[Rfam]
RNA sequence: UGUUUUUCAGGGAGGUGGUUUAAGUAAACAAGUAUAUCUCUGAAUAAGGGAUAGAACCAGUAAACUAAACCUGAGAAAAUACUCCAACAACCUGAUCUGGAUAAUGCCAGCGUAGGGACUGGGAAACAGAGGGGA
Numbered sequence: 001u002g003u004u005u006u007u008c009a010g011g012g013a014g015g016u017g018g019u020u021u022a023a024g025u026a027a028a029c030a031a032g033u034a035u036a037u038c039u040c041u042g043a044a045u046a047a048g049g050g051a052u053a054g055a056a057c058c059a060g061u062a063a064a065c066u067a068a069a070c071c072u073g074a075g076a077a078a079a080u081a082c083u084c085c086a087a088c089a090a091c092c093u094g095a096u097c098u099g100g101a102u103a104a105u106g107c108c109a110g111c112g113u114a115g116g117g118a119c120u121g122g123g124a125a126a127c128a129g130a131g132g133g134g135a
Stems, first nucleotide, its partner, number of pairs: 006123005011085004016079001017071005091116004097110004
RNA: TPP riboswitch aptamer (THI element)
Organism: Niastella vici